[Rfam]
RNA: mir-9229 microRNA precursor family
Organism: Pipistrellus kuhlii
RNA sequence: GAGACACCCUUAUGGGACAAAAAUUCCUUCAGUGGGGCUUUGGUGCUCACUGAAUUUUCCCCAUGAGUGUGUCCCU
Numbered sequence: 001g002a003g004a005c006a007c008c009c010u011u012a013u014g015g016g017a018c019a020a021a022a023a024u025u026c027c028u029u030c031a032g033u034g035g036g037g038c039u040u041u042g043g044u045g046c047u048c049a050c051u052g053a054a055u056u057u058u059c060c061c062c063a064u065g066a067g068u069g070u071g072u073c074c075c076u
Stems, first nucleotide, its partner, number of pairs: 001075001003073005009067004014062003019057001021056002029053008037044002